The family of this 194-nucleotide sequence from Salvia splendens is "MIR168 microRNA precursor family". Its family is annotated with RISC complex and miRNA-mediated post-transcriptional gene silencing in the Gene Ontology. A search with the family's covariance model found it, with a score of 86 bits. The base pairs follow the family's consensus structure, which was predicted with WAR. The family has 10 seed sequences and 518 matches in Rfam 15.1.

RNA sequence: GUUGCCGCGCCCUCUAGUUCGCUUGGUGCAGGUCGGGAACUUAAUUCGCCGAUUGCGUGUGAAUUUUGCGGUGAAUUUGAGCUCUCCAAUCGUACAUGAUGCGUGUGCGUGGUGAAAAAACAUUUGAUUGCCGCUCAAUUUGGCGAAAAUCAGGUUCCUGCCUUGCAUCAACUGAAUCGGAGGCCGCGGUGAAU
Numbered sequence: 001g002u003u004g005c006c007g008c009g010c011c012c013u014c015u016a017g018u019u020c021g022c023u024u025g026g027u028g029c030a031g032g033u034c035g036g037g038a039a040c041u042u043a044a045u046u047c048g049c050c051g052a053u054u055g056c057g058u059g060u061g062a063a064u065u066u067u068g069c070g071g072u073g074a075a076u077u078u079g080a081g082c083u084c085u086c087c088a089a090u091c092g093u094a095c096a097u098g099a100u101g102c103g104u105g106u107g108c109g110u111g112g113u114g115a116a117a118a119a120a121c122a123u124u125u126g127a128u129u130g131c132c133g134c135u136c137a138a139u140u141u142g143g144c145g146a147a148a149a150u151c152a153g154g155u156u157c158c159u160g161c162c163u164u165g166c167a168u169c170a171a172c173u174g175a176a177u178c179g180g181a182g183g184c185c186g187c188g189g190u191g192a193a194u
Stems, first nucleotide, its partner, number of pairs: 013181002017177004023171010034160005040154002